Rfam assigns this 99-nucleotide sequence from Candidatus Regiella insecticola to the family "Gammaprotebacteria rimP leader". Pairs were carried over by alignment from the consensus structure, which is taken from published work. Rfam classes the family as a cis-regulatory leader. A search with the family's covariance model found it, with a score of 87 bits.
RNA sequence: AUUCUUUCAGCGGCGAAUAGGGUCCAGUUGUAUCAAACCCCGAGUUUCGGGGUUUUUUGUUAUUUGAAAAAAAUGACUGGGCUAUAAGGCCCUUUUUUU
Numbered sequence: 001a002u003u004c005u006u007u008c009a010g011c012g013g014c015g016a017a018u019a020g021g022g023u024c025c026a027g028u029u030g031u032a033u034c035a036a037a038c039c040c041c042g043a044g045u046u047u048c049g050g051g052g053u054u055u056u057u058u059g060u061u062a063u064u065u066g067a068a069a070a071a072a073a074u075g076a077c078u079g080g081g082c083u084a085u086a087a088g089g090c091c092c093u094u095u096u097u098u099u
Base pairs, nucleotide, nucleotide: 035055036054037053038052039051040050041049042048079092080091081090082089
Dot-bracket structure: ..................................((((((((.....)))))))).......................((((......)))).......